Shown here is a 579-nucleotide part of an RNA from Methanothrix thermoacetophila, a member of the family "Archaeal large subunit ribosomal RNA". Pairs were carried over by alignment from the consensus structure, which is taken from published work. The match comes from Rfam's covariance-model search (2883 bits).
[Rfam]
RNA sequence: CCCCUGAUGGGAAGUGAAGACCCCGUGGAGCUUUACUGCAGCCUGCCGCUGGGUUGUGGUUCUGGAUGUAGAGCAUAGGUAGGAGGCGUCGAAACCCGGGCGCCAGCUCGGGCGGAGCCACCACUGGAAUACUACCCUUCUGGAACUACCACCCUAACUCCGAAAGGAGGACACCGGUAGGUGGGCAGUUUGGGUGGGGCGCCACUCCCUAGAAAAGAUAUCUAGGGAGCCCUAAGGUCGACUCAGUUGGGUCGGAAACCCAACAAAGAGUGUAAAAGCAUAAGUCGGCCUGACGUCAUCCCGCAUAGCAAAGGAUGACGAGACGAAAGUCGGGUUUAGCGAACCUCUCAGCCCCCUUGGUGGGGGCGUUAGAUGACAGAAAAGCUACCCCGGGGAUAACAGAGUCGUCACCGGCAAGAGCACAUAUCGACCCGGUGGCUUGCUACCUCGAUGUCGGUUCUCUCCAUCCUGGCCGUGCAGCAGCGGCCAAGGGUGAGGUUGUUCGCCUAUUAAAGGAGAUCGUGAGCUGGGUUUAGACCGUCGUGAGACAGGUCGGUUACUAUCUGUCAGGGGUGCUUC
Numbered sequence: 001c002c003c004c005u006g007a008u009g010g011g012a013a014g015u016g017a018a019g020a021c022c023c024c025g026u027g028g029a030g031c032u033u034u035a036c037u038g039c040a041g042c043c044u045g046c047c048g049c050u051g052g053g054u055u056g057u058g059g060u061u062c063u064g065g066a067u068g069u070a071g072a073g074c075a076u077a078g079g080u081a082g083g084a085g086g087c088g089u090c091g092a093a094a095c096c097c098g099g100g101c102g103c104c105a106g107c108u109c110g111g112g113c114g115g116a117g118c119c120a121c122c123a124c125u126g127g128a129a130u131a132c133u134a135c136c137c138u139u140c141u142g143g144a145a146c147u148a149c150c151a152c153c154c155u156a157a158c159u160c161c162g163a164a165a166g167g168a169g170g171a172c173a174c175c176g177g178u179a180g181g182u183g184g185g186c187a188g189u190u191u192g193g194g195u196g197g198g199g200c201g202c203c204a205c206u207c208c209c210u211a212g213a214a215a216a217g218a219u220a221u222c223u224a225g226g227g228a229g230c231c232c233u234a235a236g237g238u239c240g241a242c243u244c245a246g247u248u249g250g251g252u253c254g255g256a257a258a259c260c261c262a263a264c265a266a267a268g269a270g271u272g273u274a275a276a277a278g279c280a281u282a283a284g285u286c287g288g289c290c291u292g293a294c295g296u297c298a299u300c301c302c303g304c305a306u307a308g309c310a311a312a313g314g315a316u317g318a319c320g321a322g323a324c325g326a327a328a329g330u331c332g333g334g335u336u337u338a339g340c341g342a343a344c345c346u347c348u349c350a351g352c353c354c355c356c357u358u359g360g361u362g363g364g365g366g367c368g369u370u371a372g373a374u375g376a377c378a379g380a381a382a383a384g385c386u387a388c389c390c391c392g393g394g395g396a397u398a399a400c401a402g403a404g405u406c407g408u409c410a411c412c413g414g415c416a417a418g419a420g421c422a423c424a425u426a427u428c429g430a431c432c433c434g435g436u437g438g439c440u441u442g443c444u445a446c447c448u449c450g451a452u453g454u455c456g457g458u459u460c461u462c463u464c465c466a467u468c469c470u471g472g473c474c475g476u477g478c479a480g481c482a483g484c485g486g487c488c489a490a491g492g493g494u495g496a497g498g499u500u501g502u503u504c505g506c507c508u509a510u511u512a513a514a515g516g517a518g519a520u521c522g523u524g525a526g527c528u529g530g531g532u533u534u535a536g537a538c539c540g541u542c543g544u545g546a547g548a549c550a551g552g553u554c555g556g557u558u559a560c561u562a563u564c565u566g567u568c569a570g571g572g573g574u575g576c577u578u579c
Base pairs, nucleotide, nucleotide: 001573002572003571004570005569006568007567008566010565011564012563014560015559022394023393024392025391027390028389029386030385031384032383033382035189036188037187038186042181043180044179045178046177047176048175051154052153053152054151056149057148058147059146060145061144062143063142064141065140066139068137078136079135080134081133082132085119086118087117097110098109099108100107101106158169159168160167161166192205193203194202195201206228207227208226209225210224211223231334232333237289238288239287240286241285242284243269244268246264247263248262249261250260251259270279271278294320295319296318297317298316299315300314301313322331324329345372346371349368351367352366353365354364355363403444404443405442407441408438409437410436411435412434413433414432418428419427455530456528457527458526459525460522461519462518463517464516465515468493469492472487473486474485475484476483496508497507498506499505536554537553538552539551540549541548542547